[Rfam]
RNA sequence: AAGGUCGAGGGCGGCUAGGCCUCCGCACCUAACCCUGAUUUUCAUUAGCUGUGGGUUCUGGUCUUUUGUUCUCCGCCCGCUGUUUUUCUCGCUGACUUCCAGCGGGCCAGGAAAGUCCAGACCUGCAGCGGGCCACCGCGCGUUCCCGAGCCUCAAAAACAAACGUCAGCGCAGGAGCUCCAGGUUCGCCCGGAGCUCCGCGGCGCCGGGCCGCCCAGUCCCGUACCCGCCUACAGGCCGCGGCCGGCCUGGGGUCUUAGGACUCCGCUGCCGCCGCGAAGAGCUCGUCUCUGUCAGCCGCGGGGCGCCGGGGGCUGGGGCCAGGCCGGGCGAGCGCCGCGAGGACAGGAAUGGAACUGGUCCCCGUGUUCGGUGUCUUACCUGAGCUGUGGGAAGUGCACCCGGAACUCGGUUCUCACAACC
Numbered sequence: 001a002a003g004g005u006c007g008a009g010g011g012c013g014g015c016u017a018g019g020c021c022u023c024c025g026c027a028c029c030u031a032a033c034c035c036u037g038a039u040u041u042u043c044a045u046u047a048g049c050u051g052u053g054g055g056u057u058c059u060g061g062u063c064u065u066u067u068g069u070u071c072u073c074c075g076c077c078c079g080c081u082g083u084u085u086u087u088c089u090c091g092c093u094g095a096c097u098u099c100c101a102g103c104g105g106g107c108c109a110g111g112a113a114a115g116u117c118c119a120g121a122c123c124u125g126c127a128g129c130g131g132g133c134c135a136c137c138g139c140g141c142g143u144u145c146c147c148g149a150g151c152c153u154c155a156a157a158a159a160c161a162a163a164c165g166u167c168a169g170c171g172c173a174g175g176a177g178c179u180c181c182a183g184g185u186u187c188g189c190c191c192g193g194a195g196c197u198c199c200g201c202g203g204c205g206c207c208g209g210g211c212c213g214c215c216c217a218g219u220c221c222c223g224u225a226c227c228c229g230c231c232u233a234c235a236g237g238c239c240g241c242g243g244c245c246g247g248c249c250u251g252g253g254g255u256c257u258u259a260g261g262a263c264u265c266c267g268c269u270g271c272c273g274c275c276g277c278g279a280a281g282a283g284c285u286c287g288u289c290u291c292u293g294u295c296a297g298c299c300g301c302g303g304g305g306c307g308c309c310g311g312g313g314g315c316u317g318g319g320g321c322c323a324g325g326c327c328g329g330g331c332g333a334g335c336g337c338c339g340c341g342a343g344g345a346c347a348g349g350a351a352u353g354g355a356a357c358u359g360g361u362c363c364c365c366g367u368g369u370u371c372g373g374u375g376u377c378u379u380a381c382c383u384g385a386g387c388u389g390u391g392g393g394a395a396g397u398g399c400a401c402c403c404g405g406a407a408c409u410c411g412g413u414u415c416u417c418a419c420a421a422c423c
Stems, first nucleotide, its partner, number of pairs: 005194002007191001009189001011187001013186004018181001021177004063115004075107008091170006097163002197343001199341005210326003213321004220311002226304005239278005245273004251266003280292004354415004359409003363405002373401004379394001381392002